Rfam assigns this 145-nucleotide RNA sequence from Gossypium aridum to the family "MIR7502 microRNA precursor family". The match comes from Rfam's covariance-model search (87 bits). Its family is annotated with miRNA-mediated post-transcriptional gene silencing and RISC complex in the Gene Ontology. Taxonomically the source falls in Gossypium (Eukaryota, Euphyllophyta, Spermatophyta, Gunneridae). The family has 6 seed sequences and 74,505 matches in Rfam 15.1.
RNA sequence: UAUUAAAAAUUUUAUCCAAUUGUGCAAUUAAAAACUAAUGUAGCUAACAAAAUAACCAAACAAUGACAUGUGAAAUACCAUGUGUACAUCAUACUGAUGUCCAGAGACUAGUUUUUAACAGUAGAAAUAAAUAAAAUUUUUAACA
Numbered sequence: 001u002a003u004u005a006a007a008a009a010u011u012u013u014a015u016c017c018a019a020u021u022g023u024g025c026a027a028u029u030a031a032a033a034a035c036u037a038a039u040g041u042a043g044c045u046a047a048c049a050a051a052a053u054a055a056c057c058a059a060a061c062a063a064u065g066a067c068a069u070g071u072g073a074a075a076u077a078c079c080a081u082g083u084g085u086a087c088a089u090c091a092u093a094c095u096g097a098u099g100u101c102c103a104g105a106g107a108c109u110a111g112u113u114u115u116u117a118a119c120a121g122u123a124g125a126a127a128u129a130a131a132u133a134a135a136a137u138u139u140u141u142a143a144c145a
Base pairs, nucleotide, nucleotide: 003143004142005141006140007139008138009137010136011135012134013133014132015131018128020126021125023123024122025121028118029117030116031115032114033113

The family's consensus secondary structure was predicted with RNAalifold.